[Rfam]
A member of the RNA family "MIR396 microRNA precursor family" from Vigna angularis, 122 nucleotides long. The literature on the family includes a 2005 paper in Plant Cell by Sunkar et al., "Cloning and characterization of microRNAs from rice". The family has 26 seed sequences and 744 matches in Rfam 15.1. Its family is annotated with miRNA-mediated post-transcriptional gene silencing and RISC complex in the Gene Ontology.
RNA sequence: CUUUGUAUUCUUCCACAGCUUUCUUGAACUGCAUCCAUAGAGUUCCUUUGCAUGCAUGCCAUGGCACUCUUGCUCCCACACCUUGUUUUGCGGUUCAAUAAAGCUGUGGGAAGAUACAGAUC
Numbered sequence: 001c002u003u004u005g006u007a008u009u010c011u012u013c014c015a016c017a018g019c020u021u022u023c024u025u026g027a028a029c030u031g032c033a034u035c036c037a038u039a040g041a042g043u044u045c046c047u048u049u050g051c052a053u054g055c056a057u058g059c060c061a062u063g064g065c066a067c068u069c070u071u072g073c074u075c076c077c078a079c080a081c082c083u084u085g086u087u088u089u090g091c092g093g094u095u096c097a098a099u100a101a102a103g104c105u106g107u108g109g110g111a112a113g114a115u116a117c118a119g120a121u122c
Stems, first nucleotide, its partner, number of pairs: 003119005013109003017105006024098004029093005